RNA sequence: GAGGAUAUUAUGACCCUUUCCUCAGAUGAUCGACAAUGAACAUACUAUGCGCUAUUGUUUUCUCUUAAGAGAUAAUCAAGCCAGAACUCUGAUCCUC
Numbered sequence: 001g002a003g004g005a006u007a008u009u010a011u012g013a014c015c016c017u018u019u020c021c022u023c024a025g026a027u028g029a030u031c032g033a034c035a036a037u038g039a040a041c042a043u044a045c046u047a048u049g050c051g052c053u054a055u056u057g058u059u060u061u062c063u064c065u066u067a068a069g070a071g072a073u074a075a076u077c078a079a080g081c082c083a084g085a086a087c088u089c090u091g092a093u094c095c096u097c
Base pairs, nucleotide, nucleotide: 001097002096003095004094005093
RNA: Small nucleolar RNA Z103
Organism: Oryza punctata